[Rfam]
RNA sequence: CUACAUUCAAGGCCGAAGCUUCUUUCGAAGCGCGGGGGAACCCAUCUUUUGGGGUGAAGCCAUAACUCUAUGGCCGGGUGAUUGCUCUUUGACCCGAACCCGUCAGCUAACCUCGCAGGCCGAAAAAAGGAGAGGA
Numbered sequence: 001c002u003a004c005a006u007u008c009a010a011g012g013c014c015g016a017a018g019c020u021u022c023u024u025u026c027g028a029a030g031c032g033c034g035g036g037g038g039a040a041c042c043c044a045u046c047u048u049u050u051g052g053g054g055u056g057a058a059g060c061c062a063u064a065a066c067u068c069u070a071u072g073g074c075c076g077g078g079u080g081a082u083u084g085c086u087c088u089u090u091g092a093c094c095c096g097a098a099c100c101c102g103u104c105a106g107c108u109a110a111c112c113u114c115g116c117a118g119g120c121c122g123a124a125a126a127a128a129g130g131a132g133a134g135g136a
Base pairs, nucleotide, nucleotide: 011121012120013119014118018031019030020029032116033115034114035113036112037111042051052101053100054099060073061072062071063070076095077094078093079092
Dot-bracket structure: ..........((((...(((........)))((((((....(........)(((.....((((......))))..((((............))))...))).........)))))).))))...............